[Rfam]
Nucleotides: 080
Base pairs, nucleotide, nucleotide: 004052005051006050007049008048009047010046011045012044015041017068018067019066020065021064026038027037028036029035058074059073060072061071
Number, partner (000 for none) and nucleotide at each position: 001000u002000a003000g004052c005051a006050g007049u008048c009047a010046u011045a012044c013000a014000a015041c016000u017068g018067a019066c020065g021064g022000a023000u024000a025000a026038g027037u028036g029035g030000a031000u032000c033000a034000a035029c036028c037027a038026c039000a040000u041015g042000a043000a044012g045011u046010a047009u048008g049007a050006c051005u052004g053000g054000a055000a056000a057000u058074u059073g060072c061071c062000g063000a064021c065020c066019g067018u068017c069000u070000g071061g072060g073059c074058g075000u076000c077000a078000c079000a080000g

ZMP/ZTP riboswitch aptamer (pfl RNA motif): an 80-nucleotide sequence from Clostridium sp. CAG:43.
A search with the family's covariance model found it, with a score of 62 bits.